Shown here is a 139-nucleotide RNA sequence from Anaerobacillus isosaccharinicus, a member of the family "Glycine riboswitch aptamer". It scores 64 bits against the family's covariance model. This family represents the bacterial glycine riboswitch.

[Rfam]
RNA sequence: AUGAAAACAUGAGGAGAGACUGCAAUACAUUUGCGAGUUUCACAACCCGUAAAAACAGAAGCUGAGCAAAGCUUUUCUGCAGCGCCGAAGGAGCAAGCGAAUCCGUGAAUCUCUCAGGCAAAAAGACUCUUGUUUGACG
Number, nucleotide and partner (000 for none) at each position: 001a000002u000003g000004a000005a000006a134007a133008c132009a131010u000011g129012a128013g127014g000015a000016g000017a000018g000019a000020c082021u081022g080023c079024a000025a000026u000027a000028c000029a000030u000031u000032u000033g000034c000035g000036a000037g000038u000039u000040u000041c000042a000043c000044a000045a000046c000047c000048c000049g000050u000051a000052a000053a000054a000055a000056c000057a000058g000059a000060a000061g000062c000063u000064g000065a000066g000067c000068a000069a000070a000071g000072c000073u000074u000075u000076u000077c000078u000079g023080c022081a021082g020083c000084g119085c118086c117087g115088a114089a000090g000091g113092a112093g111094c000095a000096a000097g106098c105099g000100a000101a000102u000103c000104c000105g098106u097107g000108a000109a000110u000111c093112u092113c091114u088115c087116a000117g086118g085119c084120a000121a000122a000123a000124a000125g000126a000127c013128u012129c011130u000131u009132g008133u007134u006135u000136g000137a000138c000139g000